Source information: A member of the RNA family "Glycine riboswitch aptamer" from Rhizobacter sp. AJA081-3, 95 nucleotides long. It scores 49 bits against the family's covariance model. Lineage of the source: Bacteria > Pseudomonadati > Pseudomonadota > Sphaerotilaceae > Rhizobacter.
RNA sequence: UGCGCGCCGUCAGGAGAGAGCUUCCCCGUGAAGCCGCCGAAGGCGCAGAACAGGACAUCGUUCGAACGCUCAGGCAAAAGGACUGGCAAGCGUCU
Numbered sequence: 001u002g003c004g005c006g007c008c009g010u011c012a013g014g015a016g017a018g019a020g021c022u023u024c025c026c027c028g029u030g031a032a033g034c035c036g037c038c039g040a041a042g043g044c045g046c047a048g049a050a051c052a053g054g055a056c057a058u059c060g061u062u063c064g065a066a067c068g069c070u071c072a073g074g075c076a077a078a079a080g081g082a083c084u085g086g087c088a089a090g091c092g093u094c095u
Stems, first nucleotide, its partner, number of pairs: 009087005020034004036075003039071002043069003049062002